[Rfam]
RNA sequence: GUGACAGAAGAGAGGGAGCACACAUAGUUCUUUUCUUGCAUGGUCAUGCUAGAAAUUCUGUGUGCUCUCUCUCUCUCCGUCAC
Dot-bracket structure: (((((.((.((((((((((((.((..................................)).))))))))))))..)).)))))